[Rfam]
RNA: Eukaryotic small subunit ribosomal RNA, nucleotides 25 to 620
Organism: Paragonimus westermani
RNA sequence: CAUAUGCUUGUCUCAGAGAUUAAGCCAUGCAUGUCUAAGUACAUACCUCAAAACGGUGAAACCGCGAAUGGCUCAUUAAAUCAGCUAUGGUUCCUUAGAUCGUACAUACUACAUGGAUAACUGUAGUAAUUCUAGAGCUAAUACAUGCCACUAUGCCCUGACCCGCGAGGGAACGGGUGGAUUUAUUAGAACAGAACCAACCGGUUGUGGCCUUGGCUGCAUCCGUUGUACUCUGUGAUGACUCUGGAUAACUUCACUGAUCGCGUCGGCCUUGUGUCGGCGACGGAUCUUUCAAAUGUCUGCCCUAUCAAUUUACGAUGGUAGGUGACCUGCCUACCAUGGUGAUAACGGGUAACGGGGAAUCAGGGUUCGAUUCCGGAGAGGGAGCCUGAGAAACGGCUACCACUUCCAAGGAAGGCAGCAGGCACGCAAAUUACCCAAUCCCGGCACGGGGAGGUAGUGACGAAAAAUACGAAUACGGGACUCAACAGAGGCUCCGUAAUUCGAAUGAGUACAAUUUAAAUCCUUUAACGAGGAUCAACUGGAGGGCAAGUCUGGUGCCAGCAGCCGCGGUAACUCCAGCUCCAGAAGCGUAU
Number, nucleotide and partner (000 for none) at each position: 001c000002a596003u595004a594005u593006g592007c591008u590009u000010g000011u468012c000013u466014c465015a000016g000017a461018g428019a000020u000021u000022a000023a000024g426025c425026c424027a000028u423029g422030c421031a000032u000033g065034u064035c000036u000037a000038a000039g062040u061041a000042c000043a000044u000045a057046c056047c000048u000049c000050a000051a000052a000053a000054c000055g000056g046057u045058g000059a000060a000061a040062c039063c000064g034065c033066g000067a000068a000069u000070g000071g000072c381073u380074c379075a000076u000077u000078a000079a000080a000081u000082c302083a301084g300085c000086u000087a297088u296089g000090g000091u295092u294093c000094c000095u000096u000097a290098g289099a288100u287101c000102g000103u000104a000105c000106a000107u000108a000109c000110u000111a000112c147113a146114u145115g144116g000117a000118u000119a000120a000121c137122u136123g000124u134125a133126g132127u000128a000129a000130u000131u000132c126133u125134a124135g000136a122137g121138c000139u000140a000141a000142u000143a000144c115145a114146u113147g112148c000149c000150a000151c000152u000153a000154u000155g178156c177157c176158c175159u000160g000161a000162c171163c170164c000165g000166c000167g000168a000169g000170g163171g162172a000173a000174c000175g158176g157177g156178u155179g000180g000181a000182u000183u251184u250185a249186u248187u247188a000189g000190a000191a000192c000193a000194g000195a000196a239197c000198c237199a236200a000201c000202c000203g000204g000205u000206u000207g000208u000209g000210g000211c000212c000213u000214u000215g000216g000217c000218u000219g000220c000221a000222u000223c000224c000225g000226u000227u000228g000229u000230a000231c000232u000233c000234u000235g000236u199237g198238a000239u196240g000241a000242c000243u000244c000245u000246g000247g187248a186249u185250a184251a183252c000253u000254u000255c000256a000257c000258u000259g000260a000261u283262c282263g281264c280265g000266u000267c279268g278269g277270c276271c000272u000273u000274g000275u000276g270277u269278c268279g267280g264281c263282g262283a261284c000285g000286g000287a100288u099289c098290u097291u000292u000293c000294a092295a091296a088297u087298g000299u000300c084301u083302g082303c000304c352305c351306u350307a000308u000309c000310a000311a343312u342313u341314u000315a000316c000317g000318a340319u339320g338321g337322u336323a335324g334325g333326u000327g000328a000329c000330c000331u000332g000333c325334c324335u323336a322337c321338c320339a319340u318341g313342g312343u311344g000345a000346u000347a000348a000349c000350g306351g305352g304353u000354a000355a000356c378357g377358g376359g375360g371361a370362a369363u368364c000365a000366g000367g000368g363369u362370u361371c360372g000373a000374u000375u359376c358377c357378g356379g074380a073381g072382a000383g404384g403385g000386a401387g400388c399389c000390u000391g000392a000393g000394a000395a000396a000397c000398g000399g388400c387401u386402a000403c384404c383405a000406c417407u416408u415409c414410c000411a000412a000413g000414g409415a408416a407417g406418g000419c000420a000421g030422c029423a028424g026425g025426c024427a000428c018429g000430c000431a000432a000433a000434u459435u000436a458437c457438c456439c000440a000441a000442u454443c453444c452445c451446g450447g000448c000449a000450c446451g445452g444453g443454g442455a000456g438457g437458u436459a434460g000461u017462g000463a000464c000465g014466a013467a000468a011469a000470a000471u000472a000473c000474g505475a504476a503477u501478a500479c499480g498481g497482g496483a000484c493485u492486c491487a000488a000489c000490a000491g486492a485493g484494g000495c000496u482497c481498c480499g479500u478501a477502a000503u476504u475505c474506g000507a000508a000509u000510g000511a000512g532513u531514a529515c000516a528517a527518u000519u000520u000521a000522a000523a000524u000525c000526c000527u517528u516529u514530a000531a513532c512533g000534a000535g000536g000537a000538u000539c000540a000541a000542c588543u587544g586545g585546a584547g583548g000549g000550c000551a000552a000553g000554u000555c582556u581557g580558g579559u000560g000561c000562c000563a000564g571565c570566a000567g000568c000569c000570g565571c564572g000573g000574u000575a000576a000577c000578u000579c558580c557581a556582g555583c547584u546585c545586c544587a543588g542589a000590a008591g007592c006593g005594u004595a003596u002